[Rfam]
RNA: MIR7502 microRNA precursor family
RNA sequence: UGUUAAAAUUUUCACCCACUUCUACUAUUAAAAAUUGACGUAACUAACAAAAUAAUCAAACAGUUACACAUGGCGCACUAUGCGUACCUUAUUUUUACAUAUAGGGACCAAUUUUUAACAGUAGAAAUGGAUGAAUUUUUUAACA
Number, nucleotide and partner (000 for none) at each position: 001u000002g144003u143004u142005a141006a140007a139008a138009u000010u000011u135012u134013c133014a132015c000016c130017c000018a128019c000020u126021u125022c124023u123024a122025c121026u120027a000028u118029u117030a116031a115032a114033a113034a000035u000036u000037g000038a000039c000040g000041u000042a000043a000044c000045u000046a000047a000048c000049a000050a000051a000052a000053u000054a000055a000056u000057c000058a000059a000060a000061c000062a000063g000064u000065u000066a000067c000068a000069c000070a000071u000072g000073g000074c000075g000076c000077a000078c000079u000080a000081u000082g000083c000084g000085u000086a000087c000088c000089u000090u000091a000092u000093u000094u000095u000096u000097a000098c000099a000100u000101a000102u000103a000104g000105g000106g000107a000108c000109c000110a000111a000112u000113u033114u032115u031116u030117a029118a028119c000120a026121g025122u024123a023124g022125a021126a020127a000128u018129g000130g016131a000132u014133g013134a012135a011136u000137u000138u008139u007140u006141u005142a004143a003144c002145a000